Shown here is an 83-nucleotide RNA from Danionella cerebrum, a member of the family "Small nucleolar RNA MBII-202". On this family, see Huttenhofer et al., EMBO J 2001: "RNomics: an experimental approach that identifies 201 candidates for novel, small, non-messenger RNAs in mouse". The family's consensus secondary structure was predicted with PFOLD. The source organism's lineage runs through Eukaryota, Deuterostomia, Actinopteri, Cypriniphysae and Danionella.
RNA sequence: UGAUGACACUUUCUCCGGAAUCUCUGUACAUCUUUGAUGACUUAUUGAACCCUUUUCCAGCUGAUGACUGCAAUUUCCUCAAC
Dot-bracket structure: .(.(((........................................................................))).)